[Rfam]
RNA: Small nucleolar RNA SNORD14
RNA sequence: GGUCGAUGAGGAUAAACCUUAAGGCCUGUUUCUCAAAACAUUCACAGUGGCCGCCUAAGGCUUUCGCCUUUCGCCGGGCUUGAGAGCUUAUGAUGUCUUUAUCCUUCAUUGGAUGUCUGAGACC
Number, nucleotide and partner (000 for none) at each position: 001g124002g123003u122004c121005g000006a000007u000008g000009a000010g000011g000012a000013u000014a000015a000016a000017c000018c000019u000020u000021a000022a000023g000024g000025c000026c000027u000028g000029u000030u000031u000032c000033u000034c000035a000036a000037a000038a000039c000040a000041u000042u000043c000044a000045c000046a000047g000048u000049g000050g000051c000052c000053g000054c000055c000056u000057a000058a000059g000060g087061c086062u085063u084064u083065c082066g000067c000068c000069u000070u000071u000072c000073g000074c000075c000076g000077g000078g000079c000080u000081u000082g065083a064084g063085a062086g061087c060088u000089u000090a000091u000092g000093a000094u000095g000096u000097c000098u000099u000100u000101a000102u000103c000104c000105u000106u000107c000108a000109u000110u000111g000112g000113a000114u000115g000116u000117c000118u000119g000120a000121g004122a003123c002124c001